[Rfam]
RNA sequence: ACUAUGGAGAGUACAAGGAACUAUGAGUAGAUACUAAGAUACAUAGUAUCGAAAAUAUACUCGUUGAAGUAGUAA
Numbered sequence: 001a002c003u004a005u006g007g008a009g010a011g012u013a014c015a016a017g018g019a020a021c022u023a024u025g026a027g028u029a030g031a032u033a034c035u036a037a038g039a040u041a042c043a044u045a046g047u048a049u050c051g052a053a054a055a056u057a058u059a060c061u062c063g064u065u066g067a068a069g070u071a072g073u074a075a
Stems, first nucleotide, its partner, number of pairs: 001073005009062005022057003030050003034046002
Dot-bracket structure: (((((...(((((........(((.....(((.((.........)).)))....))))))))......)))))..
RNA: RAGATH-18 RNA